[Rfam]
RNA sequence: GGGUCUGUAGCUCAGCUGGUAGAGCAGUUGACUCUUAAUCAUCUGGUCGCGGGUUCGAAUCCCGCCGGACCCA
Numbered sequence: 001g002g003g004u005c006u007g008u009a010g011c012u013c014a015g016c017u018g019g020u021a022g023a024g025c026a027g028u029u030g031a032c033u034c035u036u037a038a039u040c041a042u043c044u045g046g047u048c049g050c051g052g053g054u055u056c057g058a059a060u061c062c063c064g065c066c067g068g069a070c071c072c073a
Stems, first nucleotide, its partner, number of pairs: 001072007010025004027043001029041003049065005

A member of the RNA family "tRNA" from Gorillibacterium sp., 73 nucleotides long. Rfam classes the family as a transfer RNA. The organism belongs to Gorillibacterium, within Bacteria. The base pairs follow the family's consensus structure, which is taken from published work. Transfer RNA (tRNA) molecules are approximately 80 nucleotides in length.